This 114-nucleotide RNA from Rothia nasimurium belongs to the Rfam family "Glycine riboswitch aptamer". A search with the family's covariance model found it, with a score of 62 bits. Taxonomically the source falls in Rothia (Bacteria, Actinomycetes, Micrococcales, Micrococcaceae).
RNA sequence: ACAACUGGUGCGGGAGAGACCGUACAUGCUCGAGGUUGAGGGACCACGGGCACCGGCGCCGAAGGAGCAAACCCUCCCCGGGAAACUCUCAGGCACAUGUACCGCUCAGUGAGG
Numbered sequence: 001a002c003a004a005c006u007g008g009u010g011c012g013g014g015a016g017a018g019a020c021c022g023u024a025c026a027u028g029c030u031c032g033a034g035g036u037u038g039a040g041g042g043a044c045c046a047c048g049g050g051c052a053c054c055g056g057c058g059c060c061g062a063a064g065g066a067g068c069a070a071a072c073c074c075u076c077c078c079c080g081g082g083a084a085a086c087u088c089u090c091a092g093g094c095a096c097a098u099g100u101a102c103c104g105c106u107c108a109g110u111g112a113g114g
Stems, first nucleotide, its partner, number of pairs: 006109001008107001010105004020056003058094003061090002065088003072080001
Its Rfam clan is "Glycine riboswitch clan".